[Rfam]
RNA: Streptomyces RNA 2736
Organism: Streptomyces boncukensis
RNA sequence: CGCCCGGCCAGGAUCCCGUGGGGGGAAUCCAGGACCGGGAAUCGGAAGCGCCCCGUCGACGGG
Numbered sequence: 001c002g003c004c005c006g007g008c009c010a011g012g013a014u015c016c017c018g019u020g021g022g023g024g025g026a027a028u029c030c031a032g033g034a035c036c037g038g039g040a041a042u043c044g045g046a047a048g049c050g051c052c053c054c055g056u057c058g059a060c061g062g063g
Stems, first nucleotide, its partner, number of pairs: 001061002003039005009032001011030004015025003044052002